[Rfam]
RNA sequence: AGCUCUGCGCAGUAGCAGUAUUGUAGCCAGUGAGGGUUAUCCGAGGCACGAUUAUUGCUAAUUGAAAAUUACAUAUGCAGAUGAAAAAAAAGUUGUGGGAGAAUAUACACCACAGUAUUAAUAUGAUCACUUCUCUGAGU
Numbered sequence: 001a002g003c004u005c006u007g008c009g010c011a012g013u014a015g016c017a018g019u020a021u022u023g024u025a026g027c028c029a030g031u032g033a034g035g036g037u038u039a040u041c042c043g044a045g046g047c048a049c050g051a052u053u054a055u056u057g058c059u060a061a062u063u064g065a066a067a068a069u070u071a072c073a074u075a076u077g078c079a080g081a082u083g084a085a086a087a088a089a090a091a092g093u094u095g096u097g098g099g100a101g102a103a104u105a106u107a108c109a110c111c112a113c114a115g116u117a118u119u120a121a122u123a124u125g126a127u128c129a130c131u132u133c134u135c136u137g138a139g140u
Stems, first nucleotide, its partner, number of pairs: 020052005026047003034042003087119002092113002095110003099106001129140004
RNA: U4 spliceosomal RNA
Organism: Canis lupus